RNA sequence: UGUCUCCUCCAACUCUCCUCAGAAAAGAAUUGGAUUUCAAGCCCGCUCCACACAGCGGGCUUUUUUUC
Numbered sequence: 001u002g003u004c005u006c007c008u009c010c011a012a013c014u015c016u017c018c019u020c021a022g023a024a025a026a027g028a029a030u031u032g033g034a035u036u037u038c039a040a041g042c043c044c045g046c047u048c049c050a051c052a053c054a055g056c057g058g059g060c061u062u063u064u065u066u067u068c
Base pairs, nucleotide, nucleotide: 008034009033010032011031012030014028015027040061041060042059043058044057045056046055047054
The family of this 68-nucleotide RNA from Massilia sp. KIM is "Betaproteobacteria toxic small RNA".
The family's consensus secondary structure was predicted with WAR.
NCBI's taxonomy places the organism under Bacteria, Pseudomonadati, Pseudomonadota, Betaproteobacteria, Massilia.
It scores 60 bits against the family's covariance model.
Overexpression in amino aid rich medium attenuates growth, suggesting role in repressing amino acid intake and metabolism.